RNA: mir-71 microRNA precursor family
RNA sequence: UGAAAGACAUGGGUAGUGAGACGAUGAGUUUGAAUUCCGUAUCACUAUUCUGUUUUUCUCC
Numbered sequence: 001u002g003a004a005a006g007a008c009a010u011g012g013g014u015a016g017u018g019a020g021a022c023g024a025u026g027a028g029u030u031u032g033a034a035u036u037c038c039g040u041a042u043c044a045c046u047a048u049u050c051u052g053u054u055u056u057u058c059u060c061c
Stems, first nucleotide, its partner, number of pairs: 002058008011050003015046005021040003